[Rfam]
RNA: Archaeal large subunit ribosomal RNA, nucleotides 731 to 1008
RNA sequence: AGUCUGACAUGUGUGCGAGUCAACGGUGAUUAAACCCGUAAGGCGCAAGGAAGCUGAUUGGCGGGAUCCCCUGUGGGGUGCACCGCCGACCGACCUUGAUCUUCUGAGAAGGGUCGAGUGUGAGCAUUCCUGUCGGGACCCGAGAAGAUGGUGAACUAUGCUGAGCGGGGCGAAGCCAGAGGAAACUCUGGUGGAGGCCCGCAGCGAUACUGACGUGCAAAUCGUUCGUCUGACUUGGGGGUAAGGGGCGAAAGACUAUCGAACCGUUAGUGCUGGUU
Numbered sequence: 001a002g003u004c005u006g007a008c009a010u011g012u013g014u015g016c017g018a019g020u021c022a023a024c025g026g027u028g029a030u031u032a033a034a035c036c037c038g039u040a041a042g043g044c045g046c047a048a049g050g051a052a053g054c055u056g057a058u059u060g061g062c063g064g065g066a067u068c069c070c071c072u073g074u075g076g077g078g079u080g081c082a083c084c085g086c087c088g089a090c091c092g093a094c095c096u097u098g099a100u101c102u103u104c105u106g107a108g109a110a111g112g113g114u115c116g117a118g119u120g121u122g123a124g125c126a127u128u129c130c131u132g133u134c135g136g137g138a139c140c141c142g143a144g145a146a147g148a149u150g151g152u153g154a155a156c157u158a159u160g161c162u163g164a165g166c167g168g169g170g171c172g173a174a175g176c177c178a179g180a181g182g183a184a185a186c187u188c189u190g191g192u193g194g195a196g197g198c199c200c201g202c203a204g205c206g207a208u209a210c211u212g213a214c215g216u217g218c219a220a221a222u223c224g225u226u227c228g229u230c231u232g233a234c235u236u237g238g239g240g241g242u243a244a245g246g247g248g249c250g251a252a253a254g255a256c257u258a259u260c261g262a263a264c265c266g267u268u269a270g271u272g273c274u275g276g277u278u
Base pairs, nucleotide, nucleotide: 004136005135006134007133008132009131011129013127014126015125016124019044020043021042026037028035048055049054061086062085063084064083069078070077071076089119139276140275142273148267149266150265151264152263156245157244158242159241161239162237163236164235165234166232168200169199170198171197175192176191177190178189179188180187181186204229205228206227207226209225210224212223213222247257248256